[Rfam]
RNA: SAM riboswitch aptamer (S box leader)
Organism: Dictyobacter vulcani
RNA sequence: CUCUCAUCAAGAGAGGUGGAGGGAAACGGCCCGAUGAAGCCCGGCAACCCGCUUGUUUUUAACAAGAAGGGUGCCAAUUCCGGCGGUCUAUGCUAUGCCGCAAGAUGAGGG
Numbered sequence: 001c002u003c004u005c006a007u008c009a010a011g012a013g014a015g016g017u018g019g020a021g022g023g024a025a026a027c028g029g030c031c032c033g034a035u036g037a038a039g040c041c042c043g044g045c046a047a048c049c050c051g052c053u054u055g056u057u058u059u060u061a062a063c064a065a066g067a068a069g070g071g072u073g074c075c076a077a078u079u080c081c082g083g084c085g086g087u088c089u090a091u092g093c094u095a096u097g098c099c100g101c102a103a104g105a106u107g108a109g110g111g
Stems, first nucleotide, its partner, number of pairs: 001111008013042001015041003021032003027082003043075004048071002052066004079103001084100004089095001